RNA sequence: UGUCUCUGUGUUACCUGAGCAUCAAAGUAUAUUUAUGUUUGGGUGUCAAAAGAGACAAACAUCAUAUUCCAAAUUUCCACAAGUACAUGUGAGUCCAUCAUAUUGUGUUUACUAAAAUUUGGAGACAGAC
Numbered sequence: 001u002g003u004c005u006c007u008g009u010g011u012u013a014c015c016u017g018a019g020c021a022u023c024a025a026a027g028u029a030u031a032u033u034u035a036u037g038u039u040u041g042g043g044u045g046u047c048a049a050a051a052g053a054g055a056c057a058a059a060c061a062u063c064a065u066a067u068u069c070c071a072a073a074u075u076u077c078c079a080c081a082a083g084u085a086c087a088u089g090u091g092a093g094u095c096c097a098u099c100a101u102a103u104u105g106u107g108u109u110u111a112c113u114a115a116a117a118u119u120u121g122g123a124g125a126c127a128g129a130c
Base pairs, nucleotide, nucleotide: 002056003055004054005053006052007051009048010047012045013044014043015042016041017040018039019038020037021036022035068123069122070121071120072119073118074117075116076115082113083112084111085110087108088107089106092101
Shown here is a 130-nucleotide sequence from Diabrotica virgifera, a member of the family "Small nucleolar RNA SNORA13". From the family's description: ACA13 is a member of the H/ACA class of snoRNA that guide the sites of modification of uridines to pseudouridines. Its Rfam clan is "SNORA13 clan". Rfam links the family to the GO terms RNA processing and nucleolus. The family's consensus secondary structure was predicted with CMfinder.